RNA sequence: UCCGAGCGAAGUUCUGCAGUACACUAAGACUCUUACCUGUCUGCAGUCAGUGCAUUACAGAACUUUGUUUUGAG
Numbered sequence: 001u002c003c004g005a006g007c008g009a010a011g012u013u014c015u016g017c018a019g020u021a022c023a024c025u026a027a028g029a030c031u032c033u034u035a036c037c038u039g040u041c042u043g044c045a046g047u048c049a050g051u052g053c054a055u056u057a058c059a060g061a062a063c064u065u066u067g068u069u070u071u072g073a074g
Stems, first nucleotide, its partner, number of pairs: 004070013022052004028048004
The record is a 74-nucleotide RNA from Anguilla anguilla, which matches "mir-148/mir-152 microRNA precursor family" in Rfam. The source organism's lineage runs through Eukaryota, Teleostomi, Euteleostomi, Elopocephala and Anguilla. A search with the family's covariance model found it, with a score of 66 bits. Its family is annotated with miRNA-mediated post-transcriptional gene silencing and RISC complex in the Gene Ontology.